[Rfam]
RNA sequence: GUGUACCUUCAGGGACGGGUGAAAUUCCAUACCGGCGGUAAGAAAUAAAUUUUUUUCAAGCCCGCGAGCCCGGCACUCACAAACGUCAAUAAACGGCAAAAUAUGAGUAUGUCAUUUUUUGAAGAGCGGUAACUUUAAGCUAUUACGGUAUAGUGAGAGCCAGGCUGAUCUGGUGCAAAGCCAGGGCCGACAGUUAAAGUCUGGAAGGAAGAAGGUUGUA
Numbered sequence: 001g002u003g004u005a006c007c008u009u010c011a012g013g014g015a016c017g018g019g020u021g022a023a024a025u026u027c028c029a030u031a032c033c034g035g036c037g038g039u040a041a042g043a044a045a046u047a048a049a050u051u052u053u054u055u056u057c058a059a060g061c062c063c064g065c066g067a068g069c070c071c072g073g074c075a076c077u078c079a080c081a082a083a084c085g086u087c088a089a090u091a092a093a094c095g096g097c098a099a100a101a102u103a104u105g106a107g108u109a110u111g112u113c114a115u116u117u118u119u120u121g122a123a124g125a126g127c128g129g130u131a132a133c134u135u136u137a138a139g140c141u142a143u144u145a146c147g148g149u150a151u152a153g154u155g156a157g158a159g160c161c162a163g164g165c166u167g168a169u170c171u172g173g174u175g176c177a178a179a180g181c182c183a184g185g186g187c188c189g190a191c192a193g194u195u196a197a198a199g200u201c202u203g204g205a206a207g208g209a210a211g212a213a214g215g216u217u218g219u220a
Stems, first nucleotide, its partner, number of pairs: 005216006018028002031200002033189002035065004060187002068165003169185005191203003